This 171-nucleotide sequence from Limosilactobacillus fermentum belongs to the Rfam family "Lysine riboswitch aptamer". The match comes from Rfam's covariance-model search (97 bits). Gene Ontology term of the family: lysine biosynthetic process. The family's consensus secondary structure is taken from published work. Riboswitches are metabolite binding domains within certain messenger RNAs that serve as precision sensors for their corresponding targets. Allosteric rearrangement of mRNA structure is mediated by ligand binding, and this results in modulation of gene expression.
[Rfam]
RNA sequence: CACACAAGAAGAGGUCGCACGACUCAUCAGUAUGGCGGGUUAGGCAAGCAAAUGCCCCAGCCCGUUUGAAAGGGUGUCGUGCCGAAACAUCGGUAAUUUUGCUGUUACCUUUGUUGGGACGUGGCUUAAGAGGCCACGGACUGUCGCAGUUUGCGGAGUGCUUCCAGAUAC
Dot-bracket structure: .......((((.....(((((((.(........(((((((...................))))))).......).)))))))...((((..((((((......))))))..))))((..(((((((.....)))))))..)).(((((...)))))....)))).......